RNA sequence: CUGCAGGCUCCAGCAUGGGGGGGCCUGGCGUGGCCCCUGCCAUUCCUGUAGCGCUGCCAGAGCAUCCCGGGGCCGUUUGAGGCCUCUCCCGGCACUUCCCGGGGGCGGUCAUAGAAGCCCCGGACACGC
Numbered sequence: 001c002u003g004c005a006g007g008c009u010c011c012a013g014c015a016u017g018g019g020g021g022g023g024c025c026u027g028g029c030g031u032g033g034c035c036c037c038u039g040c041c042a043u044u045c046c047u048g049u050a051g052c053g054c055u056g057c058c059a060g061a062g063c064a065u066c067c068c069g070g071g072g073c074c075g076u077u078u079g080a081g082g083c084c085u086c087u088c089c090c091g092g093c094a095c096u097u098c099c100c101g102g103g104g105g106c107g108g109u110c111a112u113a114g115a116a117g118c119c120c121c122g123g124a125c126a127c128g129c
Base pairs, nucleotide, nucleotide: 003057004056005055007054008053016042017041018040021036022035023034024033025032068122069121070120071119072118083108084107086105087104088103090101091100092099
Overview: Shown here is a 129-nucleotide sequence from Pardalotus punctatus, a member of the family "Small nucleolar RNA SNORA9". A search with the family's covariance model found it, with a score of 92 bits. Rfam's curators write: ACA9 is a member of the H/ACA class of snoRNA that guide the sites of modification of uridines to pseudouridines. The family's RNA type in Rfam is H/ACA-box small nucleolar RNA. Rfam links the family to the GO terms nucleolus and RNA processing.